This 68-nucleotide RNA sequence belongs to the Rfam family "tRNA". The base pairs follow the family's consensus structure, which is taken from published work. Rfam classes the family as a transfer RNA.
RNA sequence: GUAGAUAUAGUUUAAUAAAACACUAGAUUGUGAUUCUAGAGUCAGAGGUUAAACCCCUCUUAUCAACC
Numbered sequence: 001g002u003a004g005a006u007a008u009a010g011u012u013u014a015a016u017a018a019a020a021c022a023c024u025a026g027a028u029u030g031u032g033a034u035u036c037u038a039g040a041g042u043c044a045g046a047g048g049u050u051a052a053a054c055c056c057c058u059c060u061u062a063u064c065a066a067c068c
Stems, first nucleotide, its partner, number of pairs: 001067002004064004010021004023039005044060005
Dot-bracket structure: ((.((((..((((....)))).(((((.......)))))....(((((.......))))))))).)).
Its Rfam clan is "tRNA clan".